[Rfam]
RNA sequence: UCUAAUGUACCCUGUAGAACCGAAUUUGUGUGGUUUUAACAUAGUCACAGAUUCGAUUCUAGGGGGAUAUAGGU
Numbered sequence: 001u002c003u004a005a006u007g008u009a010c011c012c013u014g015u016a017g018a019a020c021c022g023a024a025u026u027u028g029u030g031u032g033g034u035u036u037u038a039a040c041a042u043a044g045u046c047a048c049a050g051a052u053u054c055g056a057u058u059c060u061a062g063g064g065g066g067a068u069a070u071a072g073g074u
Stems, first nucleotide, its partner, number of pairs: 002073002005070003010065003016060004021055010